This 379-nucleotide sequence from Geofilum rubicundum belongs to the Rfam family "Bacterial RNase P class A". Rfam classes the family as a ribozyme. The family's consensus secondary structure is taken from published work. The source organism's lineage runs through Bacteria, Pseudomonadati, Bacteroidia, Geofilum and Geofilum rubicundum. About the family: Ribonuclease P (RNase P) is a ubiquitous endoribonuclease, found in archaea, bacteria and eukarya as well as chloroplasts and mitochondria. Its best characterised activity is the generation of mature 5'-ends of tRNAs by cleaving the 5'-leader elements of precursor-tRNAs.
[Rfam]
RNA sequence: GCAGCAGGCCGGCCUGUCGUUGACUGCUUUUUUGCAGUCAGAGGAAAGUCCGGACAACACAGAGCACCACGCUUCCUAACGGGAAGAUGUCCGCAAGGGUAUUGUAGCGUAACAGAGAACAACCGCCCUGCUUGUCGGGGUAAGGGUGAAAAGGUGGGGUAAGAGCCCACCGGUACUGUAGGUGACUAUGGUAGCCGUACGUAACGUGGGUUGCAAGACCAUGUAUAUCCCGGUUCCCUCUGGGAGCAGGGUUGCUCGCCCUGUUGAAAACAGCCGGGAAGGGUAGGUCGCUAAAGGUUAUAGGUGACUAAAACCUUAGAUUAAUGACAGGCGCCAAAUUUAUUUGGUACAGGAUCCGGCUUACAGGCUUGCUGCUUCA
Numbered sequence: 001g002c003a004g005c006a007g008g009c010c011g012g013c014c015u016g017u018c019g020u021u022g023a024c025u026g027c028u029u030u031u032u033u034g035c036a037g038u039c040a041g042a043g044g045a046a047a048g049u050c051c052g053g054a055c056a057a058c059a060c061a062g063a064g065c066a067c068c069a070c071g072c073u074u075c076c077u078a079a080c081g082g083g084a085a086g087a088u089g090u091c092c093g094c095a096a097g098g099g100u101a102u103u104g105u106a107g108c109g110u111a112a113c114a115g116a117g118a119a120c121a122a123c124c125g126c127c128c129u130g131c132u133u134g135u136c137g138g139g140g141u142a143a144g145g146g147u148g149a150a151a152a153g154g155u156g157g158g159g160u161a162a163g164a165g166c167c168c169a170c171c172g173g174u175a176c177u178g179u180a181g182g183u184g185a186c187u188a189u190g191g192u193a194g195c196c197g198u199a200c201g202u203a204a205c206g207u208g209g210g211u212u213g214c215a216a217g218a219c220c221a222u223g224u225a226u227a228u229c230c231c232g233g234u235u236c237c238c239u240c241u242g243g244g245a246g247c248a249g250g251g252u253u254g255c256u257c258g259c260c261c262u263g264u265u266g267a268a269a270a271c272a273g274c275c276g277g278g279a280a281g282g283g284u285a286g287g288u289c290g291c292u293a294a295a296g297g298u299u300a301u302a303g304g305u306g307a308c309u310a311a312a313a314c315c316u317u318a319g320a321u322u323a324a325u326g327a328c329a330g331g332c333g334c335c336a337a338a339u340u341u342a343u344u345u346g347g348u349a350c351a352g353g354a355u356c357c358g359g360c361u362u363a364c365a366g367g368c369u370u371g372c373u374g375c376u377u378c379a
Stems, first nucleotide, its partner, number of pairs: 001375010011364001012332007020041008046362003050359005055213004065266001067209005072086005089100004102204002107202005123145002125141006153171006173195001174193008217289004228279005262272003296315004301310003